[Rfam]
RNA: Actino-pnp RNA
Organism: Mycolicibacterium duvalii
RNA sequence: CGCGGUCUUCGGUAGUGGCUGCCGGAGGAGGACUCCGGCCGCUUCGACUGACGGCCGUC
Numbered sequence: 001c002g003c004g005g006u007c008u009u010c011g012g013u014a015g016u017g018g019c020u021g022c023c024g025g026a027g028g029a030g031g032a033c034u035c036c037g038g039c040c041g042c043u044u045c046g047a048c049u050g051a052c053g054g055c056c057g058u059c
Stems, first nucleotide, its partner, number of pairs: 002058006009051005017043003021039007